Rfam assigns this 272-nucleotide sequence from Aspergillus felis to the family "Fungal signal recognition particle RNA".
Nucleotides: 272
Stems, first nucleotide, its partner, number of pairs: 002014003020269005027256001029254002032251003039244007048235003052069004058063001071225002075222005081213005086207003090202009100141001102139002106136004111129005117124002142146001150193007161184003168177003
Number, partner (000 for none) and nucleotide at each position: 001000a002014a003013u004012c005000u006000g007000u008000c009000a010000c011000g012004g013003a014002u015000a016000a017000c018000c019000u020269a021268g022267u023266g024265g025000a026000a027256g028000g029254c030253c031000c032251g033250c034249c035000g036000c037000u038000a039244a040243g041242u042241c043240a044239g045238u046000a047000a048235c049234c050233u051000u052069g053068c054067u055066g056000c057000g058063g059000c060000a061000u062000u063058c064000g065000c066055c067054a068053g069052c070000g071225g072224g073000a074000a075222a076221g077220g078219u079218g080000c081213c082212c083211g084210g085209u086207a087206c088205g089000a090202a091201u092200c093199c094198u095197g096196g097195g098194g099000u100141c101000g102139u103138c104000g105000u106136u107135g108134u109133a110000c111129u112128c113127g114126u115125g116000c117124g118123a119000g120000u121000a122000a123118u124117c125115c126114a127113c128112g129111a130000u131000g132000c133109u134108a135107c136106a137000a138103g139102g140000c141100g142146c143000u144000a145000a146142g147000c148000a149000a150193u151192g152191g153190a154189a155188g156187u157000g158000a159000c160000c161184c162183u163182u164000g165000a166000g167000g168177g169176a170175a171000g172000c173000a174000a175170u176169u177168c178000u179000g180000c181000a182163g183162a184161g185000a186000c187156a188155c189154u190153u191152c192151c193150a194098c195097c196096c197095u198094g199093g200092g201091a202090u203000g204000g205088c206087g207086u208000c209085g210084c211083c212082g213081g214000a215000g216000g217000a218079c219078a220077c221076c222075u223000a224072c225071c226000c227000g228000u229000u230000a231000c232000a233050g234049g235048g236000a237000a238045a239044u240043u241042g242041g243040c244039u245000g246000u247000u248000u249034g250033g251032c252000u253030g254029g255000a256027c257000a258000a259000c260000c261000g262000c263000a264000a265024c266023u267022a268021c269020u270000c271000u272000u
It scores 166 bits against the family's covariance model. Its Rfam clan is "SRP clan". On this family, see Batey et al., Science 2000: "Crystal structure of the ribonucleoprotein core of the signal recognition particle". Gene Ontology terms of the family: signal recognition particle, endoplasmic reticulum targeting, SRP-dependent cotranslational protein targeting to membrane, signal sequence recognition and signal recognition particle, plasma membrane targeting. The base pairs follow the family's consensus structure, which is taken from published work.